[Rfam]
RNA sequence: AACAUAGGAACACCUGCUAAAUGCGCCACUUCCUGUGGCAACGCAUGUGUUAGCAUGUCCUAUGCG
Dot-bracket structure: ..........(((.(((.......(((((.....)))))...))).)))...((((.....)))).
The record is a 66-nucleotide RNA sequence from Bacillus velezensis, which matches "Bacillaceae-1 RNA" in Rfam.
The organism belongs to Bacillus velezensis, within Bacteria.
The base pairs follow the family's consensus structure, which is taken from published work.
It is annotated as a small RNA.